[Rfam]
RNA sequence: GGGUUCUGAAGUUUAUAUUUUAAGCUUCAGAAGGGACUGUAGAUGGUCGGGCCGCCAUCC
Numbered sequence: 001g002g003g004u005u006c007u008g009a010a011g012u013u014u015a016u017a018u019u020u021u022a023a024g025c026u027u028c029a030g031a032a033g034g035g036a037c038u039g040u041a042g043a044u045g046g047u048c049g050g051g052c053c054g055c056c057a058u059c060c
Base pairs, nucleotide, nucleotide: 005031006030007029008028009027010026011025012024013023014022042059043058044057045056046055047054